This 173-nucleotide RNA belongs to the Rfam family "Group II catalytic intron D1-D4-3". Group II introns are found in rRNA, tRNA and mRNA of organelles in fungi, plants and protists, and also in mRNA in bacteria. The base pairs follow the family's consensus structure. It scores 144 bits against the family's covariance model.

RNA sequence: UCCGUGGCGACGCGGAAUCUGAAGGAAGUCGGCGGCAAAUUUCCGACCUAAGGAACACGAACUUCAUAUAAGGCUAGGUAAUAUUGGAUGAGUUUGCAAAACAAAACAAAGUCCUUACUGCCAAAGAUAUUACAGAGUAAAUGAAGUAGGUACAUGGAAAGAAAGAGUAUGCA
Numbered sequence: 001u002c003c004g005u006g007g008c009g010a011c012g013c014g015g016a017a018u019c020u021g022a023a024g025g026a027a028g029u030c031g032g033c034g035g036c037a038a039a040u041u042u043c044c045g046a047c048c049u050a051a052g053g054a055a056c057a058c059g060a061a062c063u064u065c066a067u068a069u070a071a072g073g074c075u076a077g078g079u080a081a082u083a084u085u086g087g088a089u090g091a092g093u094u095u096g097c098a099a100a101a102c103a104a105a106a107c108a109a110a111g112u113c114c115u116u117a118c119u120g121c122c123a124a125a126g127a128u129a130u131u132a133c134a135g136a137g138u139a140a141a142u143g144a145a146g147u148a149g150g151u152a153c154a155u156g157g158a159a160a161g162a163a164a165g166a167g168u169a170u171g172c173a
Stems, first nucleotide, its partner, number of pairs: 001016006030171002036165001040160006046151005062146006073138003078133006086114004092107004
Dot-bracket structure: ((((((....)))))).............((....(...(((((((((((...........((((((.....(((..((((((..((((..((((........))))...)))).............))))))..)))..)))))))))))...))))))....)....))..